[Rfam]
RNA sequence: GUAGAGUAUUCAGAAUUGCAUGAUGCAAUACCAACCGAGUGCAGGCACCGCGGUGGUAAAUUAAUACGGGUUUCGACCAAAAUAAACGUCGCUG
Numbered sequence: 001g002u003a004g005a006g007u008a009u010u011c012a013g014a015a016u017u018g019c020a021u022g023a024u025g026c027a028a029u030a031c032c033a034a035c036c037g038a039g040u041g042c043a044g045g046c047a048c049c050g051c052g053g054u055g056g057u058a059a060a061u062u063a064a065u066a067c068g069g070g071u072u073u074c075g076a077c078c079a080a081a082a083u084a085a086a087c088g089u090c091g092c093u094g
Base pairs, nucleotide, nucleotide: 006067007066008065009064010063015029016028017027018026019025020024030057031056032055035053036052037051039048040047043089045087069078070077071076
RNA: SAM-I/IV (S-adenosyl methionine) riboswitch aptamer